[Rfam]
RNA sequence: UAAACAGUGAAUUUUGUUAAUAUGCAACUAUAUAUUCGGACAUAUAGUUGCAUAUUAACAAAAUUCACCGUUUA
Number, nucleotide and partner (000 for none) at each position: 001u000002a073003a072004a071005c070006a000007g068008u067009g066010a065011a064012u063013u062014u061015u060016g059017u058018u057019a056020a055021u000022a000023u052024g051025c050026a049027a048028c047029u046030a000031u000032a000033u000034a000035u000036u000037c000038g000039g000040a000041c000042a000043u000044a000045u000046a029047g028048u027049u026050g025051c024052a023053u000054a000055u020056u019057a018058a017059c016060a015061a014062a013063a012064u011065u010066c009067a008068c007069c000070g005071u004072u003073u002074a000
RNA: mir-153 microRNA precursor family
Organism: Silurus meridionalis